[Rfam]
RNA sequence: CGACCCGGUGGUGCGCGCUGCUUUUCCAAGGCACUUGGGGUAACUACCCACCAGACCAAACCCCACCUGGCCACUGGUGAGUUGGGGGCCACUCGUUCGGGUGAUGGGGGCGUAAGUCGGGCGGUUUGGUGGGGUACGGUCGCCGCGAACAACCACAGACAGAGAACGGCCCCCGACAGGACUCCAAUCCUGACGGGGGCCUGACCACGCAGGAAGAAGCACCUUCCCC
Numbered sequence: 001c002g003a004c005c006c007g008g009u010g011g012u013g014c015g016c017g018c019u020g021c022u023u024u025u026c027c028a029a030g031g032c033a034c035u036u037g038g039g040g041u042a043a044c045u046a047c048c049c050a051c052c053a054g055a056c057c058a059a060a061c062c063c064c065a066c067c068u069g070g071c072c073a074c075u076g077g078u079g080a081g082u083u084g085g086g087g088g089c090c091a092c093u094c095g096u097u098c099g100g101g102u103g104a105u106g107g108g109g110g111c112g113u114a115a116g117u118c119g120g121g122c123g124g125u126u127u128g129g130u131g132g133g134g135u136a137c138g139g140u141c142g143c144c145g146c147g148a149a150c151a152a153c154c155a156c157a158g159a160c161a162g163a164g165a166a167c168g169g170c171c172c173c174c175g176a177c178a179g180g181a182c183u184c185c186a187a188u189c190c191u192g193a194c195g196g197g198g199g200c201c202u203g204a205c206c207a208c209g210c211a212g213g214a215a216g217a218a219g220c221a222c223c224u225u226c227c228c229c
Stems, first nucleotide, its partner, number of pairs: 008208003016079004090103005109144004168201005174195002178191004212227005
Dot-bracket structure: .......(((.....((((........................................................))))..........(((((....))))).....((((............................)))).......................(((((.((..((((......))))..)).)))))....)))...(((((......)))))..
Shown here is a 229-nucleotide sequence from Streptomyces tsukubensis, a member of the family "Streptomyces sRNA 4677". It is annotated as a small RNA. From the family's description: Located in the intergenic region between anti-sigma factor SCO4677 gene and a putative regulatory protein gene SCO4676. scr4677 expression requires the SCO4677 activity and scr4677 sRNA itself seem to affect the levels of the SCO4676-associated transcripts. A reference for the family is Hindra et al. (2014), "Complex intra-operonic dynamics mediated by a small RNA in Streptomyces coelicolor", PLoS One. The match comes from Rfam's covariance-model search (72 bits).